mir-2807 microRNA precursor family: an 84-nucleotide sequence from Bombyx mori.
A search with the family's covariance model found it, with a score of 83 bits.
On this family, see Liu et al., BMC Genomics 2010: "MicroRNAs of Bombyx mori identified by Solexa sequencing".
Gene Ontology terms of the family: miRNA-mediated post-transcriptional gene silencing and RISC complex.
[Rfam]
RNA sequence: UUAAGUCAAGUUUGCAUGUAGUUGAAACGCCUGCCUACGUUUGCCGCUAGGGACGCUGUUCCAACUGCAUACAAAUUUGAGUUA
Number, nucleotide and partner (000 for none) at each position: 001u000002u000003a000004a000005g000006u000007c000008a078009a077010g076011u075012u074013u073014g072015c000016a070017u000018g068019u000020a066021g065022u064023u063024g062025a000026a060027a059028c058029g057030c000031c000032u000033g000034c052035c051036u050037a000038c000039g047040u046041u000042u000043g000044c000045c000046g040047c039048u000049a000050g036051g035052g034053a000054c000055g000056c000057u029058g028059u027060u026061c000062c024063a023064a022065c021066u020067g000068c018069a000070u016071a000072c014073a013074a012075a011076u010077u009078u008079g000080a000081g000082u000083u000084a000